[Rfam]
RNA sequence: GGGUUACUCCUUGGCGCUUGCGCGCUUUGUUUGAUAAAGAUUCGCACCUAUAUCAAACCGGGUAACCUCACCUUUGGCAAGGCCAUACUGUCAGAUCAAGUCGGAACUACUACAAAAAAGGCAAUCUUCGGAUUGCCUUUUUAUUGUUGAUUAUAAAAAAUUGAGAUUUUAUAACCGGAUACCGAAACGCCGUCG
Number, nucleotide and partner (000 for none) at each position: 001g068002g067003g066004u065005u064006a063007c062008u000009c061010c060011u000012u000013g000014g025015c024016g023017c022018u000019u000020g000021c000022g017023c016024g015025c014026u000027u000028u000029g058030u057031u056032u055033g054034a053035u052036a051037a000038a049039g048040a000041u000042u000043c000044g000045c000046a000047c000048c039049u038050a000051u036052a035053u034054c033055a032056a031057a030058c029059c000060g010061g009062g007063u006064a005065a004066c003067c002068u001069c000070a000071c195072c000073u000074u000075u000076g000077g142078c000079a000080a000081g137082g136083c000084c135085a134086u000087a000088c000089u000090g107091u106092c104093a000094g102095a101096u100097c000098a000099a000100g096101u095102c094103g000104g092105a000106a091107c090108u000109a000110c130111u000112a128113c000114a127115a000116a000117a000118a000119a000120g000121g000122c000123a000124a000125u000126c000127u114128u112129c000130g110131g000132a000133u000134u085135g084136c082137c081138u000139u000140u000141u000142u077143a000144u000145u000146g000147u000148u000149g000150a000151u000152u000153a000154u000155a000156a000157a000158a000159a000160a000161u000162u000163g190164a000165g188166a000167u187168u186169u185170u184171a000172u181173a180174a000175c000176c000177g000178g000179a000180u173181a172182c000183c000184g170185a169186a168187a167188c165189g000190c163191c000192g000193u000194c000195g071
Description: The family of this 195-nucleotide RNA sequence from Sulfuriferula sp. AH1 is "Proteobacterial sRNA psRNA2". The match comes from Rfam's covariance-model search (133 bits).